[Rfam]
RNA sequence: GUUGAAGCUCCAUCUACAAAUGGAUAAGACUUCUGUCUUAGUGUAUACGAAUUUUUGAAAAUAAAGGAGCAAUACCAAAUCUCUUGAUAGAACAAGAAAUUUGGUAUUGCUCCUUUAUU
Numbered sequence: 001g002u003u004g005a006a007g008c009u010c011c012a013u014c015u016a017c018a019a020a021u022g023g024a025u026a027a028g029a030c031u032u033c034u035g036u037c038u039u040a041g042u043g044u045a046u047a048c049g050a051a052u053u054u055u056u057g058a059a060a061a062u063a064a065a066g067g068a069g070c071a072a073u074a075c076c077a078a079a080u081c082u083c084u085u086g087a088u089a090g091a092a093c094a095a096g097a098a099a100u101u102u103g104g105u106a107u108u109g110c111u112c113c114u115u116u117a118u119u
Base pairs, nucleotide, nucleotide: 009024010023011022012021013020063116064115065114066113067112068111069110070109071108072107073106074105075104077102078101079100082097083096084095085094
Overview:
Rfam assigns this 119-nucleotide sequence from Penthorum chinense to the family "Plastid-psbA-1 3UTR RNA". The base pairs follow the family's consensus structure, which was predicted with LocARNA. Rfam's curators put it in the seed alignment. Plastid psbA-1 is a non-coding RNA (ncRNA) present in plastids. It was identified in inverted repeat sequences in the 3 prime untranslate region (3UTR) of photosystem II quinone-binding protein (psbA). Lineage of the source: Eukaryota > Euphyllophyta > eudicotyledons > Saxifragales > Penthorum.